This 262-nucleotide RNA sequence from Ascochyta lentis belongs to the Rfam family "Fungal signal recognition particle RNA". NCBI's taxonomy places the organism under Eukaryota, Dikarya, Pezizomycotina, Didymellaceae, Ascochyta. Gene Ontology terms of the family: signal recognition particle, endoplasmic reticulum targeting, SRP-dependent cotranslational protein targeting to membrane, signal sequence recognition and signal recognition particle, plasma membrane targeting. Pairs were carried over by alignment from the consensus structure, which is taken from published work. On this family, see Wild et al., Curr Opin Struct Biol 2002: "Towards the structure of the mammalian signal recognition particle". A search with the family's covariance model found it, with a score of 133 bits. It is annotated as a non-coding RNA gene.
[Rfam]
RNA sequence: UACCUGUGACGGGUCUUUAUCAGAAGGUUCACCGUUAUCCACGCACACCUUUCAGUGCACACCUUGGCAGGAGCCCAGUUCGAGUCUUGUGGUGUUCGCUUCACUCCCUUGGGUAACCAGGGAUGCUGGACGAACCUAAGCAAUGAAUGCAAUCGACAAGUGAAGAAAUUCAGCAGUCAGGUAUUCACCAUGAGACGGCGGCGCUGGAAUACUCCCGUUUGGGUUGAAGGGCGUGUGUUGGGGUGGUGGCCCAACUGAUAUU
Numbered sequence: 001u002a003c004c005u006g007u008g009a010c011g012g013g014u015c016u017u018u019a020u021c022a023g024a025a026g027g028u029u030c031a032c033c034g035u036u037a038u039c040c041a042c043g044c045a046c047a048c049c050u051u052u053c054a055g056u057g058c059a060c061a062c063c064u065u066g067g068c069a070g071g072a073g074c075c076c077a078g079u080u081c082g083a084g085u086c087u088u089g090u091g092g093u094g095u096u097c098g099c100u101u102c103a104c105u106c107c108c109u110u111g112g113g114u115a116a117c118c119a120g121g122g123a124u125g126c127u128g129g130a131c132g133a134a135c136c137u138a139a140g141c142a143a144u145g146a147a148u149g150c151a152a153u154c155g156a157c158a159a160g161u162g163a164a165g166a167a168a169u170u171c172a173g174c175a176g177u178c179a180g181g182u183a184u185u186c187a188c189c190a191u192g193a194g195a196c197g198g199c200g201g202c203g204c205u206g207g208a209a210u211a212c213u214c215c216c217g218u219u220u221g222g223g224u225u226g227a228a229g230g231g232c233g234u235g236u237g238u239u240g241g242g243g244u245g246g247u248g249g250c251c252c253a254a255c256u257g258a259u260a261u262u
Base pairs, nucleotide, nucleotide: 002014003013004012018260019259020258021257022256023255026252027251029249030248031247032246036245037244038242039241040240041238042237043236044235045234046233048231049230050229051228052227053226054225063223064222066219067218068217070215071214072213073212075207076206077205078204079203080201081200082199084196085195086194087193088192089191090190091189092188094135096133097132098131100130101129102128105123106122107121108120109119111118112117136140144187145186146185147184148183149182150181155178156177157176162171163170164169